[Rfam]
RNA: Small nucleolar RNA SNORA40
Organism: Chrysochloris asiatica
Nucleotides: 109
Stems, first nucleotide, its partner, number of pairs: 002036008011027001016021001046105004051100004061088010
Number, partner (000 for none) and nucleotide at each position: 001000a002036g003035c004034a005033c006032u007031u008030g009029u010000g011027u012000u013000u014000g015000a016021u017000a018000u019000g020000u021016g022000g023000g024000c025000a026000a027011a028000g029009a030008c031007a032006g033005g034004u035003g036002c037000a038000a039000a040000a041000a042000u043000a044000a045000a046105u047104c048103c049102u050000c051100u052099c053098u054097u055000a056000c057000a058000a059000c060000a061088u062087g063086g064085a065084a066083c067082u068081c069080a070079u071000u072000g073000u074000u075000c076000a077000g078000u079070a080069u081068g082067a083066g084065u085064u086063u087062u088061g089000a090000a091000a092000c093000u094000g095000a096000a097054a098053a099052g100051a101000a102049g103048g104047g105046a106000c107000a108000u109000a